The record is a 68-nucleotide RNA sequence from Microtus ochrogaster, which matches "mir-24 microRNA precursor family" in Rfam. Rfam links the family to the GO terms RISC complex and miRNA-mediated post-transcriptional gene silencing. Pairs were carried over by alignment from the consensus structure, which was predicted with RNAalifold. It scores 87 bits against the family's covariance model. Rfam's curators write: This family represents the microRNA (miRNA) mir-24 family. miRNAs are transcribed as ~70nt precursors (modelled here) and subsequently processed by the Dicer enzyme to give a ~22nt product. In this case the mature sequence comes from the 3' arm of the precursor. The extents of the hairpin precursors are not generally known and are estimated based on hairpin prediction.
[Rfam]
RNA sequence: CCCUCCGGUGCCUACUGAGCUGAUAUCAGUUCAUUUCACACACUGGCUCAGUUCAGCAGGAACAGGAG
Numbered sequence: 001c002c003c004u005c006c007g008g009u010g011c012c013u014a015c016u017g018a019g020c021u022g023a024u025a026u027c028a029g030u031u032c033a034u035u036u037c038a039c040a041c042a043c044u045g046g047c048u049c050a051g052u053u054c055a056g057c058a059g060g061a062a063c064a065g066g067a068g
Stems, first nucleotide, its partner, number of pairs: 003068004008063002011060003015056009026046005